[Rfam]
RNA: BsrG
RNA sequence: GAUAACGUUCUUUUAGGGCAAGGUCGGCUAAUCCCCUCAGUGAAAGGGGGUGAUGCCAUGGGUAUGUAUGAAAGUUUUAUCGUGCUGUUUAGUUUCGGUACCUUCUUGAUUGCAUUACUCACAUUGAUCAUCUCUUUGAUCAAUAAAAAAUAGACCUCCCUAUUAACCGUCUAAAGUAGUAGGAGAGGUCUAUCACCUUCGAUAGCCGAUCCCUCUGGGGAACCGUUUAUCCAUAACCCGUAGUGACCGCUACGGGU
Numbered sequence: 001g002a003u004a005a006c007g008u009u010c011u012u013u014u015a016g017g018g019c020a021a022g023g024u025c026g027g028c029u030a031a032u033c034c035c036c037u038c039a040g041u042g043a044a045a046g047g048g049g050g051u052g053a054u055g056c057c058a059u060g061g062g063u064a065u066g067u068a069u070g071a072a073a074g075u076u077u078u079a080u081c082g083u084g085c086u087g088u089u090u091a092g093u094u095u096c097g098g099u100a101c102c103u104u105c106u107u108g109a110u111u112g113c114a115u116u117a118c119u120c121a122c123a124u125u126g127a128u129c130a131u132c133u134c135u136u137u138g139a140u141c142a143a144u145a146a147a148a149a150a151u152a153g154a155c156c157u158c159c160c161u162a163u164u165a166a167c168c169g170u171c172u173a174a175a176g177u178a179g180u181a182g183g184a185g186a187g188g189u190c191u192a193u194c195a196c197c198u199u200c201g202a203u204a205g206c207c208g209a210u211c212c213c214u215c216u217g218g219g220g221a222a223c224c225g226u227u228u229a230u231c232c233a234u235a236a237c238c239c240g241u242a243g244u245g246a247c248c249g250c251u252a253c254g255g256g257u
Stems, first nucleotide, its partner, number of pairs: 001231004005226003008222001009209002011165001014162005022155001024153001029053001031051001033049005060122001062120001065117002073088001098113003176196002210221004236257009